[Rfam]
A member of the RNA family "Prion pseudoknot" from Octodon degus, 43 nucleotides long.
Pairs were carried over by alignment from the consensus structure, which is taken from published work.
RNA sequence: CCACGGCGGGGGGACUUGGGGCCAGCCCCAUGGUGGUGGGUGG
Numbered sequence: 001c002c003a004c005g006g007c008g009g010g011g012g013g014a015c016u017u018g019g020g021g022c023c024a025g026c027c028c029c030a031u032g033g034u035g036g037u038g039g040g041u042g043g
Base pairs, nucleotide, nucleotide: 001033002032003031005029006028